[Rfam]
RNA: Small nucleolar RNA SNORD99
Organism: Ornithorhynchus anatinus
RNA sequence: GCUGGUUAAGGAUGACACUCAAUGGUGGACAUGUAUGGAUGACACUUGCGGAUAUGGGACUGAGACCAGCU
Numbered sequence: 001g002c003u004g005g006u007u008a009a010g011g012a013u014g015a016c017a018c019u020c021a022a023u024g025g026u027g028g029a030c031a032u033g034u035a036u037g038g039a040u041g042a043c044a045c046u047u048g049c050g051g052a053u054a055u056g057g058g059a060c061u062g063a064g065a066c067c068a069g070c071u
Stems, first nucleotide, its partner, number of pairs: 001070005